[Rfam]
A member of the RNA family "Streptomyces-metH RNA" from Streptomyces sp. Tu6071, 124 nucleotides long.
NCBI's taxonomy places the organism under Bacteria, Actinomycetes, Kitasatosporales, Streptomycetaceae, Streptomyces.
It is annotated as a small RNA.

RNA sequence: GCGUCCGCCUCGUGGAACGGCCCGACGCGCGGAAGGGCCCGCCAGCUAGGCUGCCCCUGUGCGCCGCCCGUCACCGGGGCGGCGCAAAGCCGACAGCCGUCGCACCUCAGGGAGCACACCCAUG
Numbered sequence: 001g002c003g004u005c006c007g008c009c010u011c012g013u014g015g016a017a018c019g020g021c022c023c024g025a026c027g028c029g030c031g032g033a034a035g036g037g038c039c040c041g042c043c044a045g046c047u048a049g050g051c052u053g054c055c056c057c058u059g060u061g062c063g064c065c066g067c068c069c070g071u072c073a074c075c076g077g078g079g080c081g082g083c084g085c086a087a088a089g090c091c092g093a094c095a096g097c098c099g100u101c102g103c104a105c106c107u108c109a110g111g112g113a114g115c116a117c118a119c120c121c122a123u124g
Stems, first nucleotide, its partner, number of pairs: 060086004066080004089103002092101003